[Rfam]
RNA sequence: UGACCAGUUGGUACGGGUACAUGGCCUCGAUCGAGACCUAGAGUACAGUUUUUGGAGGCCUUCCGCUCUUGGAAGGUUU
Numbered sequence: 001u002g003a004c005c006a007g008u009u010g011g012u013a014c015g016g017g018u019a020c021a022u023g024g025c026c027u028c029g030a031u032c033g034a035g036a037c038c039u040a041g042a043g044u045a046c047a048g049u050u051u052u053u054g055g056a057g058g059c060c061u062u063c064c065g066c067u068c069u070u071g072g073a074a075g076g077u078u079u
Stems, first nucleotide, its partner, number of pairs: 023038002026035003057078009
RNA: SmY spliceosomal RNA